[Rfam]
RNA sequence: GGAUCGGGAGGGAACCCUUGGGCGGGUUUCCAUGAAUUGGUUCGAACCCCCGUCUCGGACGAGGUGUCGCCGGCGACCCAACGGUUGGCGC
Numbered sequence: 001g002g003a004u005c006g007g008g009a010g011g012g013a014a015c016c017c018u019u020g021g022g023c024g025g026g027u028u029u030c031c032a033u034g035a036a037u038u039g040g041u042u043c044g045a046a047c048c049c050c051c052g053u054c055u056c057g058g059a060c061g062a063g064g065u066g067u068c069g070c071c072g073g074c075g076a077c078c079c080a081a082c083g084g085u086u087g088g089c090g091c
Base pairs, nucleotide, nucleotide: 001043002042003041004040005039010031011030012029013028014027015026016025017024064091065090066089067088068087071084073082
RNA: Rhodo-rpoB RNA